[Rfam]
Rfam assigns this 107-nucleotide RNA sequence from Butyrivibrio sp. YAB3001 to the family "SAM riboswitch aptamer (S box leader)". The SAM riboswitch is found upstream of a number of genes which code for proteins involved in methionine or cysteine biosynthesis in Gram-positive bacteria. The organism belongs to Butyrivibrio, within Bacteria.
RNA sequence: CUCUUAUUCAGAGUGGUGGAGGUACAUAGGACCUAUGAAGCCACGGCAACCCCUUGAUGAUUCAGGAAGGUGCCAACCUGAGCGUGCAAUUCCGUAUGGAAUAUGGA
Numbered sequence: 001c002u003c004u005u006a007u008u009c010a011g012a013g014u015g016g017u018g019g020a021g022g023u024a025c026a027u028a029g030g031a032c033c034u035a036u037g038a039a040g041c042c043a044c045g046g047c048a049a050c051c052c053c054u055u056g057a058u059g060a061u062u063c064a065g066g067a068a069g070g071u072g073c074c075a076a077c078c079u080g081a082g083c084g085u086g087c088a089a090u091u092c093c094g095u096a097u098g099g100a101a102u103a104u105g106g107a
Stems, first nucleotide, its partner, number of pairs: 002106002005103004013044005021033003027082001030079001045074004050070002052066003078099001084095003